[Rfam]
RNA sequence: AUAUAAGCAAAAUUUGACUUUCUAGAUUCAUUGAAAAAGUAAUGUAUGUAGUCUAUAUUAUUGAUUAGAUACAUUACUUUUUCAAUGAAUCUAAAAAGUCAAAUUUUGCUUAUAU
Numbered sequence: 001a002u003a004u005a006a007g008c009a010a011a012a013u014u015u016g017a018c019u020u021u022c023u024a025g026a027u028u029c030a031u032u033g034a035a036a037a038a039g040u041a042a043u044g045u046a047u048g049u050a051g052u053c054u055a056u057a058u059u060a061u062u063g064a065u066u067a068g069a070u071a072c073a074u075u076a077c078u079u080u081u082u083c084a085a086u087g088a089a090u091c092u093a094a095a096a097a098g099u100c101a102a103a104u105u106u107u108g109c110u111u112a113u114a115u
Stems, first nucleotide, its partner, number of pairs: 002114006009107005015101007023093003027089018049067004
Notes: Shown here is a 115-nucleotide RNA from Trifolium pratense, a member of the family "MIR2593 microRNA precursor family". The organism belongs to Trifolium, within Eukaryota. The match comes from Rfam's covariance-model search (98 bits). The family's consensus secondary structure was predicted with RNAalifold.